[Rfam]
RNA sequence: UCUAACUUAAGCAACAUAAGCCCUACCUGCUCUUACGUCCUUGCGACCCCUUAGUCGCGCCAGUGUGAAUAAGCAUCUUCGAAAAACU
Numbered sequence: 001u002c003u004a005a006c007u008u009a010a011g012c013a014a015c016a017u018a019a020g021c022c023c024u025a026c027c028u029g030c031u032c033u034u035a036c037g038u039c040c041u042u043g044c045g046a047c048c049c050c051u052u053a054g055u056c057g058c059g060c061c062a063g064u065g066u067g068a069a070u071a072a073g074c075a076u077c078u079u080c081g082a083a084a085a086a087c088u
Base pairs, nucleotide, nucleotide: 036067037066040063041062042059043058044057045056046055047054
Rfam assigns this 88-nucleotide RNA sequence from Gracilibacillus thailandensis to the family "BsrC". On this family, see Saito et al., Gene 2008: "Novel small RNA-encoding genes in the intergenic regions of Bacillus subtilis". Rfam's curators write: The 301 nucleotide sequence from Kouji Nakamura has been trimmed to a highly conserved ~85 nucleotide long core to form this family. The match comes from Rfam's covariance-model search (72 bits). The family's consensus secondary structure was predicted with CMfinder.